[Rfam]
RNA sequence: GGCGCGGGUAGAAGCGGCCAGGGCCCUCUCAGAGGUGCCCGGGGCAUUGCUCCACGA
Number, nucleotide and partner (000 for none) at each position: 001g000002g000003c000004g000005c000006g052007g051008g050009u049010a048011g000012a000013a000014g000015c042016g000017g000018c044019c043020a000021g040022g039023g038024c000025c035026c034027u033028c000029u000030c000031a000032g000033a027034g026035g025036u000037g000038c023039c022040c021041g000042g015043g019044g018045c000046a000047u000048u010049g009050c008051u007052c006053c000054a000055c000056g000057a000
Shown here is a 57-nucleotide RNA from Muricoccus roseus, a member of the family "Xanthine riboswitch aptamer (NMT1 RNA)". The match comes from Rfam's covariance-model search (42 bits). The literature on the family includes a 2020 paper in RNA by Yu and Breaker, "A bacterial riboswitch class senses xanthine and uric acid to regulate genes associated with purine oxidation".